[Rfam]
RNA sequence: AAUUAAGGAACAUCGACUAAGUUCCGCACGUCCUGUGCGAACGUCGAUGGAUCUCACAUCCUGUGAG
Numbered sequence: 001a002a003u004u005a006a007g008g009a010a011c012a013u014c015g016a017c018u019a020a021g022u023u024c025c026g027c028a029c030g031u032c033c034u035g036u037g038c039g040a041a042c043g044u045c046g047a048u049g050g051a052u053c054u055c056a057c058a059u060c061c062u063g064u065g066a067g
Base pairs, nucleotide, nucleotide: 011049012048013047014046015045016044017043025039026038027037028036029035053067054066055065056064057063
This 67-nucleotide RNA from Kurthia sibirica belongs to the Rfam family "Bacillaceae-1 RNA". By type it is a small RNA. The family's consensus secondary structure is taken from published work.